The record is a 96-nucleotide sequence from Feifania hominis, which matches "SAM riboswitch aptamer (S box leader)" in Rfam. The source organism's lineage runs through Bacteria, Bacillota, Clostridia, Feifaniaceae and Feifania. Gene Ontology term of the family: regulation of gene expression. It scores 81 bits against the family's covariance model. Pairs were carried over by alignment from the consensus structure, which is taken from published work.
RNA sequence: UCCUUAUCAAGAGCGGCUGAGGGACAGGCCCGAUGAAGCCCGACAACCUGCGAAAGCAAGGUGUCAAAUCCUGCGGUGAAUGCCGAAAGAUGAGGU
Number, nucleotide and partner (000 for none) at each position: 001u000002c095003c094004u093005u092006a091007u090008c089009a000010a000011g000012a000013g041014c000015g040016g039017c038018u000019g000020a000021g031022g030023g029024a000025c073026a072027g071028g070029c023030c022031c021032g000033a000034u000035g000036a000037a000038g017039c016040c015041c013042g065043a064044c063045a062046a000047c061048c060049u058050g057051c056052g000053a000054a000055a000056g051057c050058a049059a000060g048061g047062u045063g044064u043065c042066a000067a000068a000069u088070c028071c027072u026073g025074c085075g084076g083077u082078g000079a000080a000081u000082g077083c076084c075085g074086a000087a000088a069089g008090a007091u006092g005093a004094g003095g002096u000